[Rfam]
RNA sequence: AUCGAAAAUUAGCCGAAUUCCAGACAAUGGAAACGGGGGAACCAAACUUUGGGGUGAAUAGCUGUUCUUUCAAAACAGCUUAGGGAAACCUUUCGACCGAACCCAUCAGCUAACCUCGGAGGCUUAAAAGGAAGGGGCU
Numbered sequence: 001a002u003c004g005a006a007a008a009u010u011a012g013c014c015g016a017a018u019u020c021c022a023g024a025c026a027a028u029g030g031a032a033a034c035g036g037g038g039g040a041a042c043c044a045a046a047c048u049u050u051g052g053g054g055u056g057a058a059u060a061g062c063u064g065u066u067c068u069u070u071c072a073a074a075a076c077a078g079c080u081u082a083g084g085g086a087a088a089c090c091u092u093u094c095g096a097c098c099g100a101a102c103c104c105a106u107c108a109g110c111u112a113a114c115c116u117c118g119g120a121g122g123c124u125u126a127a128a129a130g131g132a133a134g135g136g137g138c139u
Stems, first nucleotide, its partner, number of pairs: 011124004018032005034118005043051002052104003060080006083098002

c-di-AMP riboswitch aptamer (ydaO/yuaA leader): a 139-nucleotide RNA sequence from Brevibacillus laterosporus. It scores 93 bits against the family's covariance model. Lineage of the source: Bacteria > Bacillota > Bacilli > Brevibacillus > Brevibacillus laterosporus.